Shown here is an 88-nucleotide RNA from Anisodus acutangulus, a member of the family "mir-172 microRNA precursor family". The organism belongs to Anisodus, within Eukaryota.
[Rfam]
RNA sequence: UCUUUUGCAAAUGCAGCACUAUCAAGAUUCGCAUAUAUUUGUCAUUAAAAUUGAGUGUGAAUCUUGAUGAUGCUGCAUUAGCAAUAAA
Dot-bracket structure: .........(((((((((.(((((((((((.((......................)).))))))))))).))))))))).........
Numbered sequence: 001u002c003u004u005u006u007g008c009a010a011a012u013g014c015a016g017c018a019c020u021a022u023c024a025a026g027a028u029u030c031g032c033a034u035a036u037a038u039u040u041g042u043c044a045u046u047a048a049a050a051u052u053g054a055g056u057g058u059g060a061a062u063c064u065u066g067a068u069g070a071u072g073c074u075g076c077a078u079u080a081g082c083a084a085u086a087a088a
Stems, first nucleotide, its partner, number of pairs: 010079009020069011032057002